[Rfam]
RNA sequence: GUCGAGCCACUUAACAAUGGCUUGUAACCCAAGUGGGGGCUUUAAGGUGGUUGGAGGUUGGUUCAUCGUAUCUUGUCGGAACUCUAAGAGGACUACUUGCUUGCCCAUUCCAAGAAGGGAGUUGGGCCUCGCAUUCUAGACGAAAGUCCAAAGUGCGAUGCCUUUAGAUUGGAGGAAACCGCGUGAGGUUGGCCUUACAGAGCAGCGUCACCUCCUGCUCUCGUCGUGGACGGAUAACGUGCAAGUUCUUGAGAGCCCAAUUACCCUGGUACGAAGUUCAAAACAAGACAACCAACUUU
Numbered sequence: 001g002u003c004g005a006g007c008c009a010c011u012u013a014a015c016a017a018u019g020g021c022u023u024g025u026a027a028c029c030c031a032a033g034u035g036g037g038g039g040c041u042u043u044a045a046g047g048u049g050g051u052u053g054g055a056g057g058u059u060g061g062u063u064c065a066u067c068g069u070a071u072c073u074u075g076u077c078g079g080a081a082c083u084c085u086a087a088g089a090g091g092a093c094u095a096c097u098u099g100c101u102u103g104c105c106c107a108u109u110c111c112a113a114g115a116a117g118g119g120a121g122u123u124g125g126g127c128c129u130c131g132c133a134u135u136c137u138a139g140a141c142g143a144a145a146g147u148c149c150a151a152a153g154u155g156c157g158a159u160g161c162c163u164u165u166a167g168a169u170u171g172g173a174g175g176a177a178a179c180c181g182c183g184u185g186a187g188g189u190u191g192g193c194c195u196u197a198c199a200g201a202g203c204a205g206c207g208u209c210a211c212c213u214c215c216u217g218c219u220c221u222c223g224u225c226g227u228g229g230a231c232g233g234a235u236a237a238c239g240u241g242c243a244a245g246u247u248c249u250u251g252a253g254a255g256c257c258c259a260a261u262u263a264c265c266c267u268g269g270u271a272c273g274a275a276g277u278u279c280a281a282a283a284c285a286a287g288a289c290a291a292c293c294a295a296c297u298u299u
Base pairs, nucleotide, nucleotide: 001040002039003038004023005022006021007020008019009018011016028037029036030035044298045297046296048294049293050292051291052290053289058283059282061279064276067273068272069271070270071269072268075265076259078257079256082253083252084251086250087249088248090247091246096245097244098243099242100241102239103238105233106232109230110229111228112227114225115224117222118221119220120219121218122217124163125162126161127160129158130157131156132155133154134153135152137150139148140147141146171215172214173213174212175211181208182207183206184205189200190199191198

Record summary:
The record is a 299-nucleotide sequence from Cucumis sativus, which matches "Plant signal recognition particle RNA" in Rfam. NCBI's taxonomy places the organism under Eukaryota, Tracheophyta, Gunneridae, Pentapetalae, Cucumis. Pairs were carried over by alignment from the consensus structure, which is taken from published work. Rfam links the family to the GO terms SRP-dependent cotranslational protein targeting to membrane, signal sequence recognition and signal recognition particle, endoplasmic reticulum targeting.